[Rfam]
RNA sequence: UUCGAUAGAAAUCUACCUAGGCCGUCGCCGCAAUGGCGAAGGCAUCAGGGAGACCGCCACGCCGGCAGCGGUCUUUGCGGCAGAAUCCAUUCUGCCUGACCUCGCGACGAGGUCGCUGAGGUCUAAGGGACAUAACAGUCAAC
Numbered sequence: 001u002u003c004g005a006u007a008g009a010a011a012u013c014u015a016c017c018u019a020g021g022c023c024g025u026c027g028c029c030g031c032a033a034u035g036g037c038g039a040a041g042g043c044a045u046c047a048g049g050g051a052g053a054c055c056g057c058c059a060c061g062c063c064g065g066c067a068g069c070g071g072u073c074u075u076u077g078c079g080g081c082a083g084a085a086u087c088c089a090u091u092c093u094g095c096c097u098g099a100c101c102u103c104g105c106g107a108c109g110a111g112g113u114c115g116c117u118g119a120g121g122u123c124u125a126a127g128g129g130a131c132a133u134a135a136c137a138g139u140c141a142a143c
Stems, first nucleotide, its partner, number of pairs: 021043003025039005051074007079096006098123006

The family of this 143-nucleotide sequence from Pseudomonas benzenivorans is "rmf RNA". Pairs were carried over by alignment from the consensus structure, which is taken from published work. The match comes from Rfam's covariance-model search (108 bits).